About this RNA
This 83-nucleotide RNA sequence from Drosophila pseudoobscura belongs to the Rfam family "mir-2566 microRNA precursor family". Gene Ontology terms of the family: RISC complex and miRNA-mediated post-transcriptional gene silencing. The source organism's lineage runs through Eukaryota, Hexapoda, Endopterygota, Drosophilidae and Sophophora.

RNA sequence: AUUUGCAUUUGGCUUUAGAAACACAAAGCAUGUGUGGUAUUUUAACUCAUACAUAACUUGUGUCUCUUAGAUCAAAUGUGAGU
Numbered sequence: 001a002u003u004u005g006c007a008u009u010u011g012g013c014u015u016u017a018g019a020a021a022c023a024c025a026a027a028g029c030a031u032g033u034g035u036g037g038u039a040u041u042u043u044a045a046c047u048c049a050u051a052c053a054u055a056a057c058u059u060g061u062g063u064c065u066c067u068u069a070g071a072u073c074a075a076a077u078g079u080g081a082g083u
Stems, first nucleotide, its partner, number of pairs: 001083012014071003017067003021063006030054007037046002
The family's consensus secondary structure was predicted with RNAalifold.